A member of the RNA family "RT-5 RNA", 108 nucleotides long. The base pairs follow the family's consensus structure, which is taken from published work.
[Rfam]
RNA sequence: UUGCACCCGCUGAUGGAUGCAGCACAUUCUUUUAUAGCGUUUUGCGGGUAACCGGAAUGUGUACCAUCCUGUAUGAAUAAGCACGGCUUUAUUCAUUCAAAGUUUUUU
Numbered sequence: 001u002u003g004c005a006c007c008c009g010c011u012g013a014u015g016g017a018u019g020c021a022g023c024a025c026a027u028u029c030u031u032u033u034a035u036a037g038c039g040u041u042u043u044g045c046g047g048g049u050a051a052c053c054g055g056a057a058u059g060u061g062u063a064c065c066a067u068c069c070u071g072u073a074u075g076a077a078u079a080a081g082c083a084c085g086g087c088u089u090u091a092u093u094c095a096u097u098c099a100a101a102g103u104u105u106u107u108u
Stems, first nucleotide, its partner, number of pairs: 005049006015069002018066002022062008037053001039052003075094006